[Rfam]
RNA: PreQ1 (pre queuosine) riboswitch aptamer
Organism: Aerococcus kribbianus
Nucleotides: 045
Base pairs, nucleotide, nucleotide: 006027007026008025009024010023016037
Number, partner (000 for none) and nucleotide at each position: 001000a002000a003000u004000c005000a006027u007026g008025u009024u010023g011000u012000u013000c014000g015000c016037a017000a018000c019000c020000a021000u022000c023010c024009a025008a026007c027006a028000u029000u030000a031000a032000a033000a034000a035000a036000c037016u038000a039000g040000g041000g042000g043000g044000a045000a